Background: Rfam assigns this 74-nucleotide RNA to the family "tRNA". Gene Ontology term of the family: triplet codon-amino acid adaptor activity. The family's consensus secondary structure is taken from published work. Transfer RNA (tRNA) molecules are approximately 80 nucleotides in length. The match comes from Rfam's covariance-model search (73 bits).
RNA sequence: GGGCCGCUAGCUCAAUUGGUCAGAGCAGCAGACUUUUAAUCUGUUGGUUGUGGGUUCGAGUCCCACGCGGCCUA
Numbered sequence: 001g002g003g004c005c006g007c008u009a010g011c012u013c014a015a016u017u018g019g020u021c022a023g024a025g026c027a028g029c030a031g032a033c034u035u036u037u038a039a040u041c042u043g044u045u046g047g048u049u050g051u052g053g054g055u056u057c058g059a060g061u062c063c064c065a066c067g068c069g070g071c072c073u074a
Stems, first nucleotide, its partner, number of pairs: 001073007010026004028044005050066005